[Rfam]
Nucleotides: 073
Stems, first nucleotide, its partner, number of pairs: 001072007010025003027043005049065005
Number, partner (000 for none) and nucleotide at each position: 001072g002071g003070u004069c005068c006067a007066g008000u009000g010025g011024u012023a013000a014000a015000g016000u017000g018000g019000u020000u021000a022000a023012u024011a025010c026000g027043c028042c029041u030040c031039c032000c033000u034000g035000u036000c037000a038000c039031g040030g041029a042028g043027g044000a045000g046000a047000a048000c049065g050064c051063g052062g053061g054000u055000u056000c057000g058000a059000u060000c061053c062052c063051c064050g065049u066007c067006u068005g069004g070003a071002c072001c073000g
tRNA: a 73-nucleotide sequence from Mycoplasmopsis citelli. The family's RNA type in Rfam is transfer RNA. Rfam links the family to the GO term triplet codon-amino acid adaptor activity. The source organism's lineage runs through Bacteria, Bacillati, Mycoplasmatota, Mycoplasmoidales and Mycoplasmopsis.